[Rfam]
RNA sequence: CGUGUGGUAUUUUGUUGAUUGAAAUACUUCUUUCAAACAAGAUGGCGACACGGCCUAAACGAGGU
Numbered sequence: 001c002g003u004g005u006g007g008u009a010u011u012u013u014g015u016u017g018a019u020u021g022a023a024a025u026a027c028u029u030c031u032u033u034c035a036a037a038c039a040a041g042a043u044g045g046c047g048a049c050a051c052g053g054c055c056u057a058a059a060c061g062a063g064g065u
Stems, first nucleotide, its partner, number of pairs: 001052005007046002011041006
The family of this 65-nucleotide RNA sequence from Psychromonas sp. PRT-SC03 is "L31-Gammaproteobacteria ribosomal protein leader".
Taxonomically the source falls in Psychromonas (Bacteria, Gammaproteobacteria, Alteromonadales, Psychromonadaceae).
The literature on the family includes a 2020 paper in BMC Microbiol by Eckert and Weinberg, "Discovery of 20 novel ribosomal leader candidates in bacteria and archaea".
The base pairs follow the family's consensus structure, which is taken from published work.